[Rfam]
RNA sequence: ACAAAGGCUCUUUUCAGAGCCACACACCGACUCUGAAGGAGCGGGU
Dot-bracket structure: .....((((((....)))))).........................
Numbered sequence: 001a002c003a004a005a006g007g008c009u010c011u012u013u014u015c016a017g018a019g020c021c022a023c024a025c026a027c028c029g030a031c032u033c034u035g036a037a038g039g040a041g042c043g044g045g046u
Stems, first nucleotide, its partner, number of pairs: 006021006